[Rfam]
The family of this 426-nucleotide sequence from Deinococcus proteolyticus is "Bacterial RNase P class A". A search with the family's covariance model found it, with a score of 203 bits. Its family is annotated with dimeric ribonuclease P complex, tRNA processing and ribonuclease P activity in the Gene Ontology. The family's consensus secondary structure is taken from published work. From the family's description: Ribonuclease P (RNase P) is a ubiquitous endoribonuclease, found in archaea, bacteria and eukarya as well as chloroplasts and mitochondria.

RNA sequence: GGGAGACAGACGGCCGCGCGGCUGCGCCCACCUGGGCACAGACCGUGAGGAAAGUCUGGGCACCACAGGGCGAGGAUGCCAGCUAACGGCUGGUCGGCGAGCCCAGCGCCCCUGCUGCGCGCCUGCAGCGGGGGAAAGCGGCGAAGCCGAAGGACAGUGCCACAGAAACAAGACGGCCUGCGGCCGCGUAUGCCAGGCGUGGCAGGCGGCAGGUCAAGGUGAAACGGUGCGGUAAGAGCGCACCAGGUUCCCAGGAGACUGGGAGCGCUGGUAAACCCCAUCCGGUGCAAGACCCGACAGUGCGUGAGGGCGGCCCGCCCGUUUGCAGCGCCAGGAUGGUCGCUUGAGGCGUCUGGCGACAGGCGUCCCAGAGAGAUGGUCGUCCCUGCCCGCAGGGGCAGGACAGAACCCAGCUUAUCGUCUCCC
Numbered sequence: 001g002g003g004a005g006a007c008a009g010a011c012g013g014c015c016g017c018g019c020g021g022c023u024g025c026g027c028c029c030a031c032c033u034g035g036g037c038a039c040a041g042a043c044c045g046u047g048a049g050g051a052a053a054g055u056c057u058g059g060g061c062a063c064c065a066c067a068g069g070g071c072g073a074g075g076a077u078g079c080c081a082g083c084u085a086a087c088g089g090c091u092g093g094u095c096g097g098c099g100a101g102c103c104c105a106g107c108g109c110c111c112c113u114g115c116u117g118c119g120c121g122c123c124u125g126c127a128g129c130g131g132g133g134g135a136a137a138g139c140g141g142c143g144a145a146g147c148c149g150a151a152g153g154a155c156a157g158u159g160c161c162a163c164a165g166a167a168a169c170a171a172g173a174c175g176g177c178c179u180g181c182g183g184c185c186g187c188g189u190a191u192g193c194c195a196g197g198c199g200u201g202g203c204a205g206g207c208g209g210c211a212g213g214u215c216a217a218g219g220u221g222a223a224a225c226g227g228u229g230c231g232g233u234a235a236g237a238g239c240g241c242a243c244c245a246g247g248u249u250c251c252c253a254g255g256a257g258a259c260u261g262g263g264a265g266c267g268c269u270g271g272u273a274a275a276c277c278c279c280a281u282c283c284g285g286u287g288c289a290a291g292a293c294c295c296g297a298c299a300g301u302g303c304g305u306g307a308g309g310g311c312g313g314c315c316c317g318c319c320c321g322u323u324u325g326c327a328g329c330g331c332c333a334g335g336a337u338g339g340u341c342g343c344u345u346g347a348g349g350c351g352u353c354u355g356g357c358g359a360c361a362g363g364c365g366u367c368c369c370a371g372a373g374a375g376a377u378g379g380u381c382g383u384c385c386c387u388g389c390c391c392g393c394a395g396g397g398g399c400a401g402g403a404c405a406g407a408a409c410c411c412a413g414c415u416u417a418u419c420g421u422c423u424c425c426c
Stems, first nucleotide, its partner, number of pairs: 001426007008418001009384007017047005023041001052416003056413005061287004069320002074283005079093005094151001095149004152278002157276002159272003174218001176214006183207002226244006246268001247266008291341004302331004311325003315321001348367008